[Rfam]
RNA sequence: UCACAAUGAGGAAGCAAACCAAAAUACAGGAACUGCGAUAUGCCACUCUUAAACACAGCAGUUGGUUU
Numbered sequence: 001u002c003a004c005a006a007u008g009a010g011g012a013a014g015c016a017a018a019c020c021a022a023a024a025u026a027c028a029g030g031a032a033c034u035g036c037g038a039u040a041u042g043c044c045a046c047u048c049u050u051a052a053a054c055a056c057a058g059c060a061g062u063u064g065g066u067u068u
Stems, first nucleotide, its partner, number of pairs: 014062002030050002032047001034045002
Annotation
The family of this 68-nucleotide RNA sequence from Papaver nudicaule is "Small nucleolar RNA U49". A reference for the family is Brown et al. (2001), "Multiple snoRNA gene clusters from Arabidopsis", RNA. Lineage of the source: Eukaryota > Viridiplantae > Euphyllophyta > Magnoliopsida > Papaver. Gene Ontology terms of the family: RNA processing and nucleolus. Its Rfam clan is "SNORD49 clan". Pairs were carried over by alignment from the consensus structure, which was predicted with CMfinder. The family's RNA type in Rfam is C/D-box small nucleolar RNA.